The family of this 77-nucleotide RNA from Stylophora pistillata is "Epstein-Barr virus stable intronic sequence RNA 2".
Nucleotides: 077
Base pairs, nucleotide, nucleotide: 001077002076003075004074005073006072007071008070009069012067017060018059019058020057021056022055023054024053025052026051027050028049030047031046032045033044034043035042036041
Number, partner (000 for none) and nucleotide at each position: 001077g002076c003075c004074c005073u006072g007071g008070g009069g010000g011000a012067a013000a014000g015000g016000a017060g018059g019058g020057g021056g022055a023054u024053u025052g026051g027050g028049g029000g030047g031046a032045g033044c034043g035042g036041a037000a038000u039000g040000u041036u042035c043034c044033g045032c046031u047030c048000g049028c050027c051026c052025c053024a054023a055022u056021c057020c058019c059018c060017c061000c062000u063000c064000c065000c066000c067012u068000c069009c070008c071007c072006c073005a074004g075003g076002g077001c

It scores 42 bits against the family's covariance model. The literature on the family includes a 2014 paper in RNA Biol by Moss et al., "RNA families in Epstein-Barr virus". Taxonomically the source falls in Stylophora (Eukaryota, Cnidaria, Anthozoa, Scleractinia).